[Rfam]
RNA: BsrG
RNA sequence: UGGAGGAGUUUCCCGUUCAUCUCAAGCGUGACGGUAUCAUCCCCAAUAAGAAAGGGGUGCUAUGAUGACUGCUUAUGAAGCUUUCUCGCUCAUGCUAGCUUUCGGUGUGUUUGUUAUAGUGCUACUGUCAUUUAACCAAAAAAAUAAUCCACCCUUGAGUCUGCGGCUCAGAUGGAUUAUCUCUGUCUGCUGCCAGCUCCUUGUAGGGAGCCGAGCUAUUGUAUAGGCUGAAGGUGUGACCGCACCUUCA
Numbered sequence: 001u002g003g004a005g006g007a008g009u010u011u012c013c014c015g016u017u018c019a020u021c022u023c024a025a026g027c028g029u030g031a032c033g034g035u036a037u038c039a040u041c042c043c044c045a046a047u048a049a050g051a052a053a054g055g056g057g058u059g060c061u062a063u064g065a066u067g068a069c070u071g072c073u074u075a076u077g078a079a080g081c082u083u084u085c086u087c088g089c090u091c092a093u094g095c096u097a098g099c100u101u102u103c104g105g106u107g108u109g110u111u112u113g114u115u116a117u118a119g120u121g122c123u124a125c126u127g128u129c130a131u132u133u134a135a136c137c138a139a140a141a142a143a144a145u146a147a148u149c150c151a152c153c154c155u156u157g158a159g160u161c162u163g164c165g166g167c168u169c170a171g172a173u174g175g176a177u178u179a180u181c182u183c184u185g186u187c188u189g190c191u192g193c194c195a196g197c198u199c200c201u202u203g204u205a206g207g208g209a210g211c212c213g214a215g216c217u218a219u220u221g222u223a224u225a226g227g228c229u230g231a232a233g234g235u236g237u238g239a240c241c242g243c244a245c246c247u248u249c250a
Base pairs, nucleotide, nucleotide: 001223002222004220005219007217008216009215011213020195021159022158023157024156025155026154028152030149031148038059039058041057042056043055044054067129068128069127071125080095081094105120106119169189170188171187196211197210198209199208229250230249231248232247233246234245235244236243237242